[Rfam]
RNA sequence: CAAGAGUUAAUCAAUGUCAUUACCCUCUAGUUAGGAUAUGGGAACAUUAAUGUUGA
Dot-bracket structure: .....((((((.....((((...(((......)))..))))....)))))).....
RNA: Transposase-1 RNA
Organism: Ligilactobacillus hayakitensis